[Rfam]
Nucleotides: 253
Stems, first nucleotide, its partner, number of pairs: 007104002015099004027087003031083002042073001052071004107137004112132002139151003189212001191210007217250004229245004
Number, partner (000 for none) and nucleotide at each position: 001000c002000a003000a004000g005000u006000u007104g008103c009000g010000u011000u012000g013000a014000a015099a016098g017097g018096g019000a020000u021000a022000c023000a024000u025000u026000g027087c028086a029085a030000a031083g032082a033000g034000u035000a036000g037000c038000u039000u040000g041000a042073u043000u044000a045000c046000a047000g048000a049000g050000a051000a052071c053070c054069g055068a056000g057000g058000u059000a060000g061000c062000u063000g064000a065000g066000a067000a068055u069054c070053g071052g072000a073042a074000g075000a076000a077000a078000a079000g080000c081000c082032u083031u084000a085029u086028u087027g088000u089000a090000a091000c092000a093000u094000c095000a096018c097017c098016c099015u100000g101000g102000a103008g104007c105000a106000u107137c108136u109135c110134u111000c112132c113131u114000a115000a116000a117000g118000c119000u120000u121000u122000u123000a124000g125000u126000u127000a128000g129000u130000a131113g132112g133000c134110a135109g136108g137107g138000a139151c140150g141149u142000g143000u144000u145000c146000u147000u148000c149141a150140c151139g152000u153000u154000a155000c156000a157000g158000a159000a160000g161000a162000a163000a164000c165000u166000g167000u168000u169000u170000a171000u172000u173000u174000a175000g176000a177000c178000a179000g180000u181000g182000u183000u184000a185000a186000g187000u188000g189212g190000u191210g192209a193208u194207a195206a196205u197204u198000a199000g200000c201000a202000a203000u204197a205196g206195u207194u208193a209192u210191c211000u212189c213000a214000a215000a216000c217250a218249a219248a220247g221000u222000g223000g224000u225000a226000c227000c228000a229245c230244g231243g232242a233000a234000a235000u236000g237000a238000u239000u240000u241000a242232u243231c244230c245229g246000c247220c248219u249218u250217u251000g252000u253000u

Rfam assigns this 253-nucleotide RNA sequence from Eubacterium sp. AF36-5BH to the family "T-box leader". About the family: Uncharged tRNA acts as the effector for transcription antitermination of genes in the T-box leader family. T-boxes are found upstream of many aminoacyl-tRNA synthetase genes and some amino acid biosynthetic genes usually in Gram-positive bacteria. A reference for the family is Grundy et al. (1994), "Interaction between the acceptor end of tRNA and the T box stimulates antitermination in the Bacillus subtilis tyrS gene: a new role for the discriminator base", J Bacteriol. It is annotated as a cis-regulatory leader. Rfam 15.1 lists 19,395 matches to the family in 1,923 species.